[Rfam]
RNA sequence: UCCGCUCGACCUUUACUCGGAUCGUCCGGCACGUUCCUGCCGGUGAAGGGAAUGCAC
Numbered sequence: 001u002c003c004g005c006u007c008g009a010c011c012u013u014u015a016c017u018c019g020g021a022u023c024g025u026c027c028g029g030c031a032c033g034u035u036c037c038u039g040c041c042g043g044u045g046a047a048g049g050g051a052a053u054g055c056a057c
Base pairs, nucleotide, nucleotide: 010049011048012047013046014045015044026043027042028041029040030039031038
RNA: msiK RNA
Organism: Streptomyces buecherae